Shown here is a 276-nucleotide RNA sequence from Nannospalax galili, a member of the family "Mason-Pfizer monkey virus packaging signal". About the family: This family represents a group of sequences that are related to the Mason-Pfizer monkey virus (MPMV) packaging signal. The packaging signal is located in the 5' UTR and is required for specific RNA encapsidation. NCBI's taxonomy places the organism under Eukaryota, Metazoa, Bilateria, Chordata, Nannospalax. Rfam links the family to the GO term viral genome packaging.

RNA sequence: UGGCGCCCAACGUGGCCUGGAUACUGGGGACAACGUGAGGGACACGACGAAAGAAGAAGGGGUGCGCACCCGAUCAAACAAUAGUUUGGAGAAGUUGCGGUAGCCUGCUGUGACCGAGCCGACAGGUAAGAUGGUCGUCAAUCAUGGGGCAAGAAUUAAGUCAGCAUCAAAAGUAUGUGAUGCAGUUAAGAGAAGCGCUACAGGCAAGAGGAGUAAAGGUUACAACUGAGGAUUAUUUAUUUCAUUUCUUUGAUUUCGUACAGGACAUUUGUCCUU
Numbered sequence: 001u002g003g004c005g006c007c008c009a010a011c012g013u014g015g016c017c018u019g020g021a022u023a024c025u026g027g028g029g030a031c032a033a034c035g036u037g038a039g040g041g042a043c044a045c046g047a048c049g050a051a052a053g054a055a056g057a058a059g060g061g062g063u064g065c066g067c068a069c070c071c072g073a074u075c076a077a078a079c080a081a082u083a084g085u086u087u088g089g090a091g092a093a094g095u096u097g098c099g100g101u102a103g104c105c106u107g108c109u110g111u112g113a114c115c116g117a118g119c120c121g122a123c124a125g126g127u128a129a130g131a132u133g134g135u136c137g138u139c140a141a142u143c144a145u146g147g148g149g150c151a152a153g154a155a156u157u158a159a160g161u162c163a164g165c166a167u168c169a170a171a172a173g174u175a176u177g178u179g180a181u182g183c184a185g186u187u188a189a190g191a192g193a194a195g196c197g198c199u200a201c202a203g204g205c206a207a208g209a210g211g212a213g214u215a216a217a218g219g220u221u222a223c224a225a226c227u228g229a230g231g232a233u234u235a236u237u238u239a240u241u242u243c244a245u246u247u248c249u250u251u252g253a254u255u256u257c258g259u260a261c262a263g264g265a266c267a268u269u270u271g272u273c274c275u276u
Stems, first nucleotide, its partner, number of pairs: 006029003012024003034046003085126004096112005132152001134150002138147003157200002160196002208251006217238004222233001262275005